[Rfam]
RNA sequence: ACAACAUUCGGACCGUCAGUCUACCGAGCAAUAUCACCCCCUUUGUGGAAAAUCUUUCCUUGGUCAU
Numbered sequence: 001a002c003a004a005c006a007u008u009c010g011g012a013c014c015g016u017c018a019g020u021c022u023a024c025c026g027a028g029c030a031a032u033a034u035c036a037c038c039c040c041c042u043u044u045g046u047g048g049a050a051a052a053u054c055u056u057u058c059c060u061u062g063g064u065c066a067u
Stems, first nucleotide, its partner, number of pairs: 004064002010058003015053002020049005026043003
mir-2774 microRNA precursor family: a 67-nucleotide sequence from Bombyx mori. The family's consensus secondary structure was predicted with RNAalifold. Gene Ontology terms of the family: RISC complex and miRNA-mediated post-transcriptional gene silencing.